[Rfam]
RNA sequence: UUCAGGGACUUUAGUCGCAGGAGAGAUGACACCUUCUAUUACUAAUGACAUGAUUUUAUAGCAAUUUUAACAGAAGUUGUCAUCUUUCUUUGACUGAAGUUCAUAUGCAU
Numbered sequence: 001u002u003c004a005g006g007g008a009c010u011u012u013a014g015u016c017g018c019a020g021g022a023g024a025g026a027u028g029a030c031a032c033c034u035u036c037u038a039u040u041a042c043u044a045a046u047g048a049c050a051u052g053a054u055u056u057u058a059u060a061g062c063a064a065u066u067u068u069a070a071c072a073g074a075a076g077u078u079g080u081c082a083u084c085u086u087u088c089u090u091u092g093a094c095u096g097a098a099g100u101u102c103a104u105a106u107g108c109a110u
Stems, first nucleotide, its partner, number of pairs: 005102003009099004014094004019090003023086007